[Rfam]
RNA sequence: AGAAACUUAACUCUGUACAACUGGAAAUUGAUUCGGUGAAGCAUUGUGCAGAGG
Dot-bracket structure: ..........(((((.(((.........................))).))))).
A member of the RNA family "uup RNA" from Robinsoniella sp. RHS, 54 nucleotides long.
It is annotated as a cis-regulatory element.
NCBI's taxonomy places the organism under Bacteria, Bacillati, Bacillota, Lachnospiraceae, Robinsoniella.
A search with the family's covariance model found it, with a score of 47 bits.